[Rfam]
Nucleotides: 169
Base pairs, nucleotide, nucleotide: 001169002168003167004166005165006164007163009161010160011159012158013157014156015155017153018152019151021149022148023147024146025145026144027143028142030140031139032138033137035135036134037133038132039131041129042128043127044126045125046124047123048122051119052118054107055106056105060101061100062099063098065096066095067094068093069092070091
Number, partner (000 for none) and nucleotide at each position: 001169a002168a003167c004166c005165a006164c007163a008000c009161u010160a011159u012158c013157g014156a015155u016000g017153a018152a019151u020000g021149g022148a023147u024146u025145c026144a027143c028142c029000g030140g031139u032138g033137a034000u035135a036134u037133g038132a039131c040000a041129u042128g043127g044126u045125u046124g047123u048122u049000c050000c051119a052118u053000c054107g055106a056105c057000g058000u059000g060101g061100u062099a063098u064000a065096c066095u067094a068093u069092u070091a071000a072000u073000u074000u075000u076000u077000c078000g079000u080000g081000c082000g083000a084000u085000g086000g087000c088000u089000g090000g091070u092069a093068a094067u095066a096065g097000g098063a099062u100061g101060u102000c103000a104000u105056g106055u107054c108000c109000u110000c111000g112000u113000c114000g115000u116000a117000g118052g119051u120000g121000a122048a123047a124046c125045a126044g127043c128042c129041a130000c131039g132038u133037c134036a135035u136000c137033u138032c139031g140030c141000a142028g143027g144026u145025g146024a147023a148022u149021c150000c151019a152018u153017u154000u155015a156014u157013c158012g159011a160010u161009a162000g163007u164006g165005u166004g167003g168002u169001u
The family of this 169-nucleotide sequence from Oryza sativa is "MIR807 microRNA precursor family". Lineage of the source: Eukaryota > Streptophyta > Spermatophyta > Liliopsida > Oryza sativa. The family has 30 seed sequences and 1,514 matches in Rfam 15.1. The literature on the family includes a 2006 paper in FEBS Lett by Luo et al., "Rice embryogenic calli express a unique set of microRNAs, suggesting regulatory roles of microRNAs in plant post-embryogenic development".